[Rfam]
RNA: Betaproteobacteria transfer-messenger RNA
Organism: Thauera aminoaromatica
RNA sequence: CCUCGCACAGGCAUUGAAUGCAGCCGCCGACCUGCGUAAGAUCGCGGACAUGGUUGUAAUCCCGGCAAUCUGGAGGCGUUCUGGACAGGGGUUCGAUUCCCCUCACCUCCACCCAAGUGCAUUCGGGAGUGUGCUUGGGUGGGGGUGUACCGGUUUCGACAGGGCGGGCAAAGGUGAGCAGGCAACCCGAGAGGCGACGGACGUAAUCCGCGCAAAUCCAUAAACGCCAACGAUGAGCGUUUCGCACUGGCCGCUUAAGGCCUAUGCCGAGGCUGCUUGAGCCUUGUUACCAAAGAAAAGCCGGUGGGGACUUCGGUCCCCAUCGUCA
Numbered sequence: 001c002c003u004c005g006c007a008c009a010g011g012c013a014u015u016g017a018a019u020g021c022a023g024c025c026g027c028c029g030a031c032c033u034g035c036g037u038a039a040g041a042u043c044g045c046g047g048a049c050a051u052g053g054u055u056g057u058a059a060u061c062c063c064g065g066c067a068a069u070c071u072g073g074a075g076g077c078g079u080u081c082u083g084g085a086c087a088g089g090g091g092u093u094c095g096a097u098u099c100c101c102c103u104c105a106c107c108u109c110c111a112c113c114c115a116a117g118u119g120c121a122u123u124c125g126g127g128a129g130u131g132u133g134c135u136u137g138g139g140u141g142g143g144g145g146u147g148u149a150c151c152g153g154u155u156u157c158g159a160c161a162g163g164g165c166g167g168g169c170a171a172a173g174g175u176g177a178g179c180a181g182g183c184a185a186c187c188c189g190a191g192a193g194g195c196g197a198c199g200g201a202c203g204u205a206a207u208c209c210g211c212g213c214a215a216a217u218c219c220a221u222a223a224a225c226g227c228c229a230a231c232g233a234u235g236a237g238c239g240u241u242u243c244g245c246a247c248u249g250g251c252c253g254c255u256u257a258a259g260g261c262c263u264a265u266g267c268c269g270a271g272g273c274u275g276c277u278u279g280a281g282c283c284u285u286g287u288u289a290c291c292a293a294a295g296a297a298a299a300g301c302c303g304g305u306g307g308g309g310a311c312u313u314c315g316g317u318c319c320c321c322a323u324c325g326u327c328a
Stems, first nucleotide, its partner, number of pairs: 052187005062182002065179002068175004077166007087103005104147007188203002270284004275301004304323008